[Rfam]
RNA sequence: AAAGGAGCAAUAAACCCUCUUUUGGUAGAACAAGAAAGGGUUUAUUGCUUCUUAUAU
Numbered sequence: 001a002a003a004g005g006a007g008c009a010a011u012a013a014a015c016c017c018u019c020u021u022u023u024g025g026u027a028g029a030a031c032a033a034g035a036a037a038g039g040g041u042u043u044a045u046u047g048c049u050u051c052u053u054a055u056a057u
Stems, first nucleotide, its partner, number of pairs: 002053012020035005